[Rfam]
RNA: MIR6217 microRNA precursor family
RNA sequence: UGGCUAUAAAAUAACUUAUUCUAUAGCCACUUUGAGUUAUAAUAAUUACUAUGUUAAUUUACGAGAUUAUAGUAACUCCUUACUAAGUGGUUUACUGCAACGUUAUGGUAAAUAUCCCCAUAUGUUAUAGUAAUCCAUCUAUCGUAAAUAUGUAUUAGUAUUAUUGCAAAUUAGUAUAUAAAAUUAUCGUAAAUGGAGGUGGUUACAGAAUAACUUAUUUUGUAGUCG
Number, nucleotide and partner (000 for none) at each position: 001u228002g227003g226004c225005u224006a223007u222008a221009a220010a219011a218012u217013a216014a215015c000016u213017u212018a211019u210020u209021c208022u207023a000024u205025a204026g203027c202028c201029a200030c199031u198032u197033u196034g000035a000036g000037u192038u191039a190040u189041a000042a187043u186044a185045a184046u183047u182048a000049c000050u178051a177052u176053g175054u174055u173056a172057a171058u170059u169060u168061a000062c166063g000064a000065g165066a164067u163068u000069a161070u160071a159072g000073u000074a155075a000076c000077u000078c000079c000080u147081u146082a145083c144084u000085a000086a000087g142088u141089g140090g139091u000092u137093u132094a131095c130096u129097g128098c000099a126100a125101c124102g123103u122104u000105a000106u000107g117108g116109u000110a000111a000112a000113u000114a000115u000116c108117c107118c000119c000120a000121u000122a103123u102124g101125u100126u099127a000128u097129a096130g095131u094132a093133a000134u000135c000136c000137a092138u000139c090140u089141a088142u087143c000144g083145u082146a081147a080148a000149u000150a000151u000152g000153u000154a000155u074156u000157a000158g000159u071160a070161u069162u000163a067164u066165u065166g062167c000168a060169a059170a058171u057172u056173a055174g054175u053176a052177u051178a050179u000180a000181a000182a047183a046184u045185u044186a043187u042188c000189g040190u039191a038192a037193a000194u000195g000196g033197a032198g031199g030200u029201g028202g027203u026204u025205a024206c000207a022208g021209a020210a019211u018212a017213a016214c000215u014216u013217a012218u011219u010220u009221u008222g007223u006224a005225g004226u003227c002228g001